[Rfam]
RNA sequence: GUCUUAUCCAGAGCAGCGGAGGGAACGGCCCUGUGAAGCUGCGGCAACCUGCGGAGGCCUUCUAAAGCGCCUACUAAGGUGCCAAUUCCGACCCGGUGGCCAUCCGGGAAAGAUAAGGA
Numbered sequence: 001g002u003c004u005u006a007u008c009c010a011g012a013g014c015a016g017c018g019g020a021g022g023g024a025a026c027g028g029c030c031c032u033g034u035g036a037a038g039c040u041g042c043g044g045c046a047a048c049c050u051g052c053g054g055a056g057g058c059c060u061u062c063u064a065a066a067g068c069g070c071c072u073a074c075u076a077a078g079g080u081g082c083c084a085a086u087u088c089c090g091a092c093c094c095g096g097u098g099g100c101c102a103u104c105c106g107g108g109a110a111a112g113a114u115a116a117g118g119a
Stems, first nucleotide, its partner, number of pairs: 002118007013042005021031003026090003043083004048079002051074001053072001087111001092108005
RNA: SAM riboswitch aptamer (S box leader)